RNA sequence: AGCAGAGUAAGGAUGAUAACGUUAAGUGUCCGAAGCACGGGGAGUUGGUUUCGGAACGAAAAGACAUCUUGCGAUUGUCAUCUUGCAUCCCGCUGUU
Numbered sequence: 001a002g003c004a005g006a007g008u009a010a011g012g013a014u015g016a017u018a019a020c021g022u023u024a025a026g027u028g029u030c031c032g033a034a035g036c037a038c039g040g041g042g043a044g045u046u047g048g049u050u051u052c053g054g055a056a057c058g059a060a061a062a063g064a065c066a067u068c069u070u071g072c073g074a075u076u077g078u079c080a081u082c083u084u085g086c087a088u089c090c091c092g093c094u095g096u097u
Base pairs, nucleotide, nucleotide: 001097002096003095004094005093010084011083012082013081014080015079016078017077018076019075020073021072022071026057027056029055030054031053032052033051034050035049036048040090041089042088044086061070062069063068